Small nucleolar RNA SNORA53: a 239-nucleotide RNA sequence from Scleropages formosus. Gene Ontology terms of the family: nucleolus and RNA processing. The family's consensus secondary structure was predicted with RNAalifold. Taxonomically the source falls in Scleropages (Eukaryota, Osteoglossocephalai, Osteoglossocephala, Osteoglossidae). Rfam describes the family as follows. The snoRNA ACA53 belongs to the H/ACA family of pseudouridylation guide snoRNAs.
RNA sequence: AACACGUUCCUUAGAUCCACCUCUGGGGGGCACUCCAGUGCUAGAACUGUUGCUCUAUCUGGGUGCAGCAGCUCCAGUCUGGGGGGCUUCCAGCAACUUGCUGGUUGUACAGUUGGAGGUGCUUGAGUCAUUGGCGUGUGAGAGCAGUAUACCUGCCCCCCAGCCCCCCGCUGCACUGGUACCCCAUCAGCUCUGCUGGCAGGAAGUUCCCAGUGCAGCUAGGCUGGGAAGCAGACAUC
Dot-bracket structure: .(((((((.(((((...((((((((((((....(((...(((.(..((((..(.(.....)...)..))))..).)))...)))..))))))((((((....)))))).......)))))).))))).....))))))).............((((...(.((((......((((((((...(...(((.......)))......)...))))))))....)))).)...)))).....
Numbered sequence: 001a002a003c004a005c006g007u008u009c010c011u012u013a014g015a016u017c018c019a020c021c022u023c024u025g026g027g028g029g030g031c032a033c034u035c036c037a038g039u040g041c042u043a044g045a046a047c048u049g050u051u052g053c054u055c056u057a058u059c060u061g062g063g064u065g066c067a068g069c070a071g072c073u074c075c076a077g078u079c080u081g082g083g084g085g086g087c088u089u090c091c092a093g094c095a096a097c098u099u100g101c102u103g104g105u106u107g108u109a110c111a112g113u114u115g116g117a118g119g120u121g122c123u124u125g126a127g128u129c130a131u132u133g134g135c136g137u138g139u140g141a142g143a144g145c146a147g148u149a150u151a152c153c154u155g156c157c158c159c160c161c162a163g164c165c166c167c168c169c170g171c172u173g174c175a176c177u178g179g180u181a182c183c184c185c186a187u188c189a190g191c192u193c194u195g196c197u198g199g200c201a202g203g204a205a206g207u208u209c210c211c212a213g214u215g216c217a218g219c220u221a222g223g224c225u226g227g228g229a230a231g232c233a234g235a236c237a238u239c
Stems, first nucleotide, its partner, number of pairs: 002139007010127005018121006024092006034084003040078003044074001047071004053065001055061001093108006153234004160227001162225004172217008183206001187199003
Notes
The family has 28 seed sequences and 1,090 matches in Rfam 15.1.